[Rfam]
A member of the RNA family "PyrR binding site" from Vagococcus salmoninarum, 131 nucleotides long.
RNA sequence: GUUACCUUUAAAGUUAGUCCAGAGAGGCUAAAAAGGCUGAUAGUGAAACUAGUAAUGCUUUUAUUAGUCGAAGCUAUCCUGAGAUGAGACAUUGUGCUCCUGCCUUUUUAUUGAAGGCAGGAGCUUUUUGU
Numbered sequence: 001g002u003u004a005c006c007u008u009u010a011a012a013g014u015u016a017g018u019c020c021a022g023a024g025a026g027g028c029u030a031a032a033a034a035g036g037c038u039g040a041u042a043g044u045g046a047a048a049c050u051a052g053u054a055a056u057g058c059u060u061u062u063a064u065u066a067g068u069c070g071a072a073g074c075u076a077u078c079c080u081g082a083g084a085u086g087a088g089a090c091a092u093u094g095u096g097c098u099c100c101u102g103c104c105u106u107u108u109u110a111u112u113g114a115a116g117g118c119a120g121g122a123g124c125u126u127u128u129u130g131u
Stems, first nucleotide, its partner, number of pairs: 005036005014031006050081003054077001057074005063068001094126001096124012
Dot-bracket structure: ....(((((....((((((......))))))))))).............(((.(..(((((.(....).)))))..).)))............(.((((((((((((.....)))))))))))).).....
Notes:
This family represents the PyrR binding site and terminator structure. This RNA structure is found upstream of a variety of genes involved in pyrimidine biosynthesis and transport. The alignment also includes a portion of the antiterminator structure. Pairs were carried over by alignment from the consensus structure, which is taken from published work.